[Rfam]
About this RNA: A member of the RNA family "Glycine riboswitch aptamer" from Qipengyuania gaetbuli, 95 nucleotides long. The pairing is the family consensus, mapped onto this sequence. The organism belongs to Qipengyuania, within Bacteria. The literature on the family includes a 2004 paper in Science by Mandal et al., "A glycine-dependent riboswitch that uses cooperative binding to control gene expression".
RNA sequence: CAGGCGCGCAUGGGAGAGCUGGUCCGGGGACACCCGCCAGCGCCGAAGGAGCAACCGCCCCGGAAACUCUCAGGCCUCAGGACCGUGCGCUGCCA
Numbered sequence: 001c002a003g004g005c006g007c008g009c010a011u012g013g014g015a016g017a018g019c020u021g022g023u024c025c026g027g028g029g030a031c032a033c034c035c036g037c038c039a040g041c042g043c044c045g046a047a048g049g050a051g052c053a054a055c056c057g058c059c060c061c062g063g064a065a066a067c068u069c070u071c072a073g074g075c076c077u078c079a080g081g082a083c084c085g086u087g088c089g090c091u092g093c094c095a
Base pairs, nucleotide, nucleotide: 006090007089008088009087010086011085012084013083019040020039021038022037042075043074044073045071046070049069050068051067055063056062